RNA sequence: UAGUCAAAUUUAAUAUAUAUAGUCCAAUCUAUUGAACUACUUACCUACAUCAGCUUAUUAGAGCUGGUGUACUAGUACUUCAAUAGAUUGGACUAUAUAUAUUGAAUUUGACCAA
Number, nucleotide and partner (000 for none) at each position: 001u114002a000003g112004u111005c110006a109007a108008a107009u106010u105011u104012a103013a102014u101015a100016u099017a098018u097019a096020u095021a094022g093023u092024c091025c090026a089027a088028u087029c086030u085031a084032u083033u082034g081035a080036a079037c000038u077039a076040c075041u074042u000043a000044c000045c000046u071047a070048c069049a068050u000051c066052a065053g064054c063055u062056u061057a000058u000059u000060a000061g056062a055063g054064c053065u052066g051067g000068u049069g048070u047071a046072c000073u000074a041075g040076u039077a038078c000079u036080u035081c034082a033083a032084u031085a030086g029087a028088u027089u026090g025091g024092a023093c022094u021095a020096u019097a018098u017099a016100u015101a014102u013103u012104g011105a010106a009107u008108u007109u006110g005111a004112c003113c000114a001115a000
RNA: MIR860 microRNA precursor family